[Rfam]
terC RNA: a 63-nucleotide RNA sequence from Ancylobacter sp. TS-1. It is annotated as a cis-regulatory element. The match comes from Rfam's covariance-model search (58 bits).
RNA sequence: CCGUUGAUCCGGGCCCCUCUGACGCGAGCCGAGCCGGCGUUCGCGUGAUGUCGGAUCGCUUUC
Numbered sequence: 001c002c003g004u005u006g007a008u009c010c011g012g013g014c015c016c017c018u019c020u021g022a023c024g025c026g027a028g029c030c031g032a033g034c035c036g037g038c039g040u041u042c043g044c045g046u047g048a049u050g051u052c053g054g055a056u057c058g059c060u061u062u063c
Stems, first nucleotide, its partner, number of pairs: 006057007022046008